[Rfam]
RNA sequence: CUUUCUGAGCAGGUUGGGAGAGGCAGCAAUGCUCUGUACGUGUGCCGUAUUGCACUUGUCCCGGCCUGUUGAGGACGU
Numbered sequence: 001c002u003u004u005c006u007g008a009g010c011a012g013g014u015u016g017g018g019a020g021a022g023g024c025a026g027c028a029a030u031g032c033u034c035u036g037u038a039c040g041u042g043u044g045c046c047g048u049a050u051u052g053c054a055c056u057u058g059u060c061c062c063g064g065c066c067u068g069u070u071g072a073g074g075a076c077g078u
Stems, first nucleotide, its partner, number of pairs: 004074003009069006016062004022056002026053007

This 78-nucleotide RNA from Liparis tanakae belongs to the Rfam family "mir-92 microRNA precursor family". It scores 61 bits against the family's covariance model. Rfam links the family to the GO terms RISC complex and miRNA-mediated post-transcriptional gene silencing. The literature on the family includes a 2002 paper in Genes Dev by Mourelatos et al., "miRNPs: a novel class of ribonucleoproteins containing numerous microRNAs".